RNA sequence: CCGCUCUGGAGAGCAGAUCGAAGGGCAUCGCCCUACGAUCUCGCCCACGGUGAAAGUCCCGGCCGAGUCCGGGGUGAAUCUCUCAGGCCGAAUGACAGAGGGGGA
Numbered sequence: 001c002c003g004c005u006c007u008g009g010a011g012a013g014c015a016g017a018u019c020g021a022a023g024g025g026c027a028u029c030g031c032c033c034u035a036c037g038a039u040c041u042c043g044c045c046c047a048c049g050g051u052g053a054a055a056g057u058c059c060c061g062g063c064c065g066a067g068u069c070c071g072g073g074g075u076g077a078a079u080c081u082c083u084c085a086g087g088c089c090g091a092a093u094g095a096c097a098g099a100g101g102g103g104g105a
Stems, first nucleotide, its partner, number of pairs: 001103002004100005015041006043088003047083001050082001052080001056075007

This 105-nucleotide RNA from Planctomonas sp. JC2975 belongs to the Rfam family "Glycine riboswitch aptamer". The literature on the family includes a 2004 paper in Science by Mandal et al., "A glycine-dependent riboswitch that uses cooperative binding to control gene expression". Taxonomically the source falls in Planctomonas (Bacteria, Bacillati, Actinomycetes, Micrococcales).